This 99-nucleotide RNA from Curtobacterium sp. Leaf261 belongs to the Rfam family "mraW RNA". A search with the family's covariance model found it, with a score of 54 bits. NCBI's taxonomy places the organism under Bacteria, Bacillati, Actinomycetota, Micrococcales, Curtobacterium. The family has 45 seed sequences and 851 matches in Rfam 15.1. The base pairs follow the family's consensus structure, which is taken from published work.

RNA sequence: UCUGAUCCGUUGACCCGGACUCCCAGCCGUCCGCCCUGGUGCACCUUCCCCGGUGCCAGGUCGGGAUGGAUGGGGAUCCGGGCCCACGGACCAGGAGAG
Numbered sequence: 001u002c003u004g005a006u007c008c009g010u011u012g013a014c015c016c017g018g019a020c021u022c023c024c025a026g027c028c029g030u031c032c033g034c035c036c037u038g039g040u041g042c043a044c045c046u047u048c049c050c051c052g053g054u055g056c057c058a059g060g061u062c063g064g065g066a067u068g069g070a071u072g073g074g075g076a077u078c079c080g081g082g083c084c085c086a087c088g089g090a091c092c093a094g095g096a097g098a099g
Stems, first nucleotide, its partner, number of pairs: 010086001012084001014082003018078002021075005027069004031064003035060008